[Rfam]
RNA sequence: UAGUUAUCAAGAAAGGUGGAGGGAAUAGACCCUUUGAAACCUUAGCAACCCUUUGCGCAAUGCAAUGAAGGUGCUAAAUUCUACCAAAUGUGCUUUAUGCAUUGGCGGCAGAUAACGA
Numbered sequence: 001u002a003g004u005u006a007u008c009a010a011g012a013a014a015g016g017u018g019g020a021g022g023g024a025a026u027a028g029a030c031c032c033u034u035u036g037a038a039a040c041c042u043u044a045g046c047a048a049c050c051c052u053u054u055g056c057g058c059a060a061u062g063c064a065a066u067g068a069a070g071g072u073g074c075u076a077a078a079u080u081c082u083a084c085c086a087a088a089u090g091u092g093c094u095u096u097a098u099g100c101a102u103u104g105g106c107g108g109c110a111g112a113u114a115a116c117g118a
Stems, first nucleotide, its partner, number of pairs: 001118001003116006013043005021032003026083004044075004049071002051067001053065002079110001084107001
Rfam assigns this 118-nucleotide sequence from Paracellulophaga tyrosinoxydans to the family "SAM riboswitch aptamer (S box leader)". Rfam describes the family as follows. The SAM riboswitch is found upstream of a number of genes which code for proteins involved in methionine or cysteine biosynthesis in Gram-positive bacteria. Lineage of the source: Bacteria > Bacteroidota > Flavobacteriales > Flavobacteriaceae > Paracellulophaga. It scores 70 bits against the family's covariance model.